[Rfam]
RNA: Pospiviroid RY motif stem loop
Organism: Podilymbus podiceps
RNA sequence: GGCAGGAGGAGAUAAUCCCUGCCGACGCGGGUAUUUACCCGUCGCCUUCAGGUGCUCCCUGCCUGCCCGGCUGAG
Numbered sequence: 001g002g003c004a005g006g007a008g009g010a011g012a013u014a015a016u017c018c019c020u021g022c023c024g025a026c027g028c029g030g031g032u033a034u035u036u037a038c039c040c041g042u043c044g045c046c047u048u049c050a051g052g053u054g055c056u057c058c059c060u061g062c063c064u065g066c067c068c069g070g071c072u073g074a075g
Base pairs, nucleotide, nucleotide: 001067002066003065004064005063006062008058009057010056011055018052019051020050021049024046026044027043028041029040030039031038032037